This 84-nucleotide RNA from Fasciola gigantica belongs to the Rfam family "tRNA".

RNA sequence: GGCCUCGUAGCUCAGCUGGUAGAGCACUCGUGGUACUAAAGCGAGGGUGGUGACCACGCGUGGGUUCGAAUCCCGCCGAGGCCA
Numbered sequence: 001g002g003c004c005u006c007g008u009a010g011c012u013c014a015g016c017u018g019g020u021a022g023a024g025c026a027c028u029c030g031u032g033g034u035a036c037u038a039a040a041g042c043g044a045g046g047g048u049g050g051u052g053a054c055c056a057c058g059c060g061u062g063g064g065u066u067c068g069a070a071u072c073c074c075g076c077c078g079a080g081g082c083c084a
Stems, first nucleotide, its partner, number of pairs: 001083007010025004027045004060076005

The family's consensus secondary structure is taken from published work.